[Rfam]
RNA: Small nucleolar RNA SNORA51
RNA sequence: GGCCUCCCCACGCUUACCGCAGGUGGCUGCGCCUCCAACCGCCUGCAUAGAACGGGGAGGGAGAGCACGGCCUCGGGUAACACCCCGGCUGGGGCGGCGGUGCCGCGGCCGGAUUGUGACCGGGGGGACACGG
Numbered sequence: 001g002g003c004c005u006c007c008c009c010a011c012g013c014u015u016a017c018c019g020c021a022g023g024u025g026g027c028u029g030c031g032c033c034u035c036c037a038a039c040c041g042c043c044u045g046c047a048u049a050g051a052a053c054g055g056g057g058a059g060g061g062a063g064a065g066c067a068c069g070g071c072c073u074c075g076g077g078u079a080a081c082a083c084c085c086c087g088g089c090u091g092g093g094g095c096g097g098c099g100g101u102g103c104c105g106c107g108g109c110c111g112g113a114u115u116g117u118g119a120c121c122g123g124g125g126g127g128a129c130a131c132g133g
Base pairs, nucleotide, nucleotide: 003060004059005058006057007056008055020045021044022043026039028037029036071125072124073123074122075121076120086111087110088109090107091106093104094103095102